RNA: cspA thermoregulator
Organism: Trabulsiella odontotermitis
RNA sequence: GCCGGUUUGAUUUACAGACCAUAAAGCAGUUGUGUUGAGCAGUCCUCUCACAGGUUGUCCGUUGAUACCCUCGUAGUGACCUUUCCCUUUAUGCUUCAAAUCUGUAAUCCAUACCACUAUUGCCAUCUGGCAGCACACUUACAUUAAAGGAAAUCACUAUGUCCGGUAAAAUGACUGGUAUCGUAAAAUGGUUCAACGCUGAUAAAGGCUUCGGCUUCAUCACUCCGGACGACGGUUCUAAAGAUCUGUUCGUUCACUUCUCCGCUAUCCAGAACGAUGGCUACAAAUCCCUUGAUGAAGGCCAGAAAGUGUCCUUCACCAUCGAAAACGGCGCUAAAGGCCCGGCUGCUGGCAACGUAACCAGCCUGUAAGUCUGACUAUGAGCCUGAUUCAGGCUCUGUAGCACGUAAAGAUCCUCGUCAUUGACGGGGAUUUUUUU
Numbered sequence: 001g002c003c004g005g006u007u008u009g010a011u012u013u014a015c016a017g018a019c020c021a022u023a024a025a026g027c028a029g030u031u032g033u034g035u036u037g038a039g040c041a042g043u044c045c046u047c048u049c050a051c052a053g054g055u056u057g058u059c060c061g062u063u064g065a066u067a068c069c070c071u072c073g074u075a076g077u078g079a080c081c082u083u084u085c086c087c088u089u090u091a092u093g094c095u096u097c098a099a100a101u102c103u104g105u106a107a108u109c110c111a112u113a114c115c116a117c118u119a120u121u122g123c124c125a126u127c128u129g130g131c132a133g134c135a136c137a138c139u140u141a142c143a144u145u146a147a148a149g150g151a152a153a154u155c156a157c158u159a160u161g162u163c164c165g166g167u168a169a170a171a172u173g174a175c176u177g178g179u180a181u182c183g184u185a186a187a188a189u190g191g192u193u194c195a196a197c198g199c200u201g202a203u204a205a206a207g208g209c210u211u212c213g214g215c216u217u218c219a220u221c222a223c224u225c226c227g228g229a230c231g232a233c234g235g236u237u238c239u240a241a242a243g244a245u246c247u248g249u250u251c252g253u254u255c256a257c258u259u260c261u262c263c264g265c266u267a268u269c270c271a272g273a274a275c276g277a278u279g280g281c282u283a284c285a286a287a288u289c290c291c292u293u294g295a296u297g298a299a300g301g302c303c304a305g306a307a308a309g310u311g312u313c314c315u316u317c318a319c320c321a322u323c324g325a326a327a328a329c330g331g332c333g334c335u336a337a338a339g340g341c342c343c344g345g346c347u348g349c350u351g352g353c354a355a356c357g358u359a360a361c362c363a364g365c366c367u368g369u370a371a372g373u374c375u376g377a378c379u380a381u382g383a384g385c386c387u388g389a390u391u392c393a394g395g396c397u398c399u400g401u402a403g404c405a406c407g408u409a410a411a412g413a414u415c416c417u418c419g420u421c422a423u424u425g426a427c428g429g430g431g432a433u434u435u436u437u438u439u
Stems, first nucleotide, its partner, number of pairs: 004020006026226001028224003039217001041216004045208002048205001054203004060198006067192003072161007085150002088147002091144001093110001096107001122131003163178005230324003234320002243251002255311005261306002264303001265301002268295002271292002276289003329344003333341003345369002348366001349364004372404002383397006410436012